This 66-nucleotide RNA from Mesocricetus auratus belongs to the Rfam family "Small nucleolar RNA SNORD109A". A reference for the family is Runte et al. (2001), "The IC-SNURF-SNRPN transcript serves as a host for multiple small nucleolar RNA species and as an antisense RNA for UBE3A", Hum Mol Genet.

RNA sequence: GGAUCAAUGAUGACAGCAAGUCUCUGAGGACGGUGAUCGACCCGUGACUAUGCCAAUCUGAGCUCC
Numbered sequence: 001g002g003a004u005c006a007a008u009g010a011u012g013a014c015a016g017c018a019a020g021u022c023u024c025u026g027a028g029g030a031c032g033g034u035g036a037u038c039g040a041c042c043c044g045u046g047a048c049u050a051u052g053c054c055a056a057u058c059u060g061a062g063c064u065c066c
Stems, first nucleotide, its partner, number of pairs: 001066003005062001
Notes
The source organism's lineage runs through Eukaryota, Sarcopterygii, Glires, Rodentia and Mesocricetus. The base pairs follow the family's consensus structure, which was predicted with WAR. It is annotated as a C/D-box small nucleolar RNA. Humans have two copies of the SNORD109 gene, SNORD109A and SNORD109B. Gene Ontology terms of the family: RNA processing and nucleolus.